ZMP/ZTP riboswitch aptamer (pfl RNA motif): an 81-nucleotide RNA sequence from Acidocella aromatica.
RNA sequence: CUCAUCCCAUGUGACUGGCGUUAAGGAGGGGGAACCCUCGGGAAGCAUGGGAGCAGAAAGCCGCGCGCCUGGGCAUAUCUU
Numbered sequence: 001c002u003c004a005u006c007c008c009a010u011g012u013g014a015c016u017g018g019c020g021u022u023a024a025g026g027a028g029g030g031g032g033a034a035c036c037c038u039c040g041g042g043a044a045g046c047a048u049g050g051g052a053g054c055a056g057a058a059a060g061c062c063g064c065g066c067g068c069c070u071g072g073g074c075a076u077a078u079c080u081u
Stems, first nucleotide, its partner, number of pairs: 005052008015042002017069005027038004058076001060074003

The match comes from Rfam's covariance-model search (60 bits).